[Rfam]
RNA sequence: GAGCUGUGACGAAAUACGCACAAAUGUGAAUGAAGGGUCAUUCACUAUCGCCAACUUAUAGGUGAAAAAAUGUGUAUCCGAGCUC
Numbered sequence: 001g002a003g004c005u006g007u008g009a010c011g012a013a014a015u016a017c018g019c020a021c022a023a024a025u026g027u028g029a030a031u032g033a034a035g036g037g038u039c040a041u042u043c044a045c046u047a048u049c050g051c052c053a054a055c056u057u058a059u060a061g062g063u064g065a066a067a068a069a070a071u072g073u074g075u076a077u078c079c080g081a082g083c084u085c
Stems, first nucleotide, its partner, number of pairs: 001085004

The family of this 85-nucleotide RNA from Cicer arietinum is "small nucleolar RNA snoR114". The source organism's lineage runs through Eukaryota, Viridiplantae, Fabaceae, Hologalegina and Cicer. It scores 59 bits against the family's covariance model.